[Rfam]
RNA sequence: GGGUGCUUGAGGCUGUCUGGCGUUAAGCAUUCGCGAGGUUCCAGAUGGACAAAAGCCCCAGGCGAUAUUUCUAUCAACCUGAGGCUCGCGUUCGAACGUAGCAAUUCGGAUGUUAGUCUCUUCUUUGCAGGGAGGCAAGACAUGCUAACAAA
Numbered sequence: 001g002g003g004u005g006c007u008u009g010a011g012g013c014u015g016u017c018u019g020g021c022g023u024u025a026a027g028c029a030u031u032c033g034c035g036a037g038g039u040u041c042c043a044g045a046u047g048g049a050c051a052a053a054a055g056c057c058c059c060a061g062g063c064g065a066u067a068u069u070u071c072u073a074u075c076a077a078c079c080u081g082a083g084g085c086u087c088g089c090g091u092u093c094g095a096a097c098g099u100a101g102c103a104a105u106u107c108g109g110a111u112g113u114u115a116g117u118c119u120c121u122u123c124u125u126u127g128c129a130g131g132g133a134g135g136c137a138a139g140a141c142a143u144g145c146u147a148a149c150a151a152a
Base pairs, nucleotide, nucleotide: 001059002058003057005056006055007054008053011050013048014047015046016045017044018043019042020041022039024038060080061079062078064075065074066073067072081120082119083118084117085116088113089112090111091110092109093108094107095106096105124144126142

This 152-nucleotide RNA from Escherichia coli belongs to the Rfam family "sok antitoxin (CssrC)". Taxonomically the source falls in Escherichia coli O157:H7 (Bacteria, Pseudomonadati, Pseudomonadota, Enterobacterales). Gene Ontology term of the family: mRNA binding. About the family: Also identified in Shigella as CssrC. It is annotated as an antitoxin RNA. Pairs were carried over by alignment from the consensus structure, which is taken from published work.